Small nucleolar RNA SNORA53: a 207-nucleotide sequence from Rhizopus delemar. The family has 28 seed sequences and 1,090 matches in Rfam 15.1. Rfam classes the family as an H/ACA-box small nucleolar RNA. Rfam's curators write: The snoRNA ACA53 belongs to the H/ACA family of pseudouridylation guide snoRNAs. It scores 48 bits against the family's covariance model.
RNA sequence: CAUAUCUGCCUUAGAUCCUUUGUCAAGGUUUUCCAUUUUGGAAAAUCUACAAAGCUUCGGUUUUUGCUUUCCGUUGACAAAGCUUGAGUCAUUCAGAUAUAAGAUUGCCUAUACCUCCACUCUUGAUCCCAAGGAAAGUGUCUAACUCGAUUUUUUCUUUUGAAAAUAUCAUUUAAAGUUGAUACUGUGGAUUCGUUUGGGGACAUA
Number, nucleotide and partner (000 for none) at each position: 001c000002a100003u099004a098005u097006c096007u095008g094009c000010c088011u087012u086013a085014g084015a000016u000017c000018c082019u081020u080021u079022g078023u077024c076025a075026a048027g047028g046029u045030u044031u043032u042033c041034c040035a000036u000037u000038u000039u000040g034041g033042a032043a031044a030045a029046u028047c027048u026049a069050c066051a065052a064053a063054g062055c000056u000057u000058c000059g000060g000061u000062u054063u053064u052065u051066g050067c000068u000069u049070u000071c000072c000073g000074u000075u025076g024077a023078c022079a021080a020081a019082g018083c000084u014085u013086g012087a011088g010089u000090c000091a000092u000093u000094c008095a007096g006097a005098u004099a003100u002101a000102a000103g000104a000105u000106u000107g000108c000109c000110u000111a000112u000113a000114c000115c202116u201117c200118c199119a198120c000121u000122c195123u000124u000125g193126a192127u191128c190129c000130c000131a000132a000133g000134g000135a000136a000137a186138g185139u184140g183141u182142c181143u000144a179145a000146c000147u000148c000149g174150a173151u000152u171153u000154u166155u165156u164157c000158u000159u000160u000161u000162g000163a000164a156165a155166a154167u000168a000169u000170c000171a152172u000173u150174u149175a000176a000177a000178g000179u144180u000181g142182a141183u140184a139185c138186u137187g000188u000189g000190g128191a127192u126193u125194c000195g122196u000197u000198u119199g118200g117201g116202g115203a000204c000205a000206u000207a000
NCBI's taxonomy places the organism under Eukaryota, Mucoromycotina, Mucoromycetes, Rhizopus, Rhizopus delemar.